[Rfam]
RNA sequence: UUGUGAGCACCUACUAUGUGCCAGACACUCAGUGUCUGGCACAUAGUAGGUGCUCACAA
Dot-bracket structure: ((((((((((((((((((((((((((((...))))))))))))))))))))))))))))
The family of this 59-nucleotide sequence from Pipistrellus kuhlii is "mir-3116 microRNA precursor family".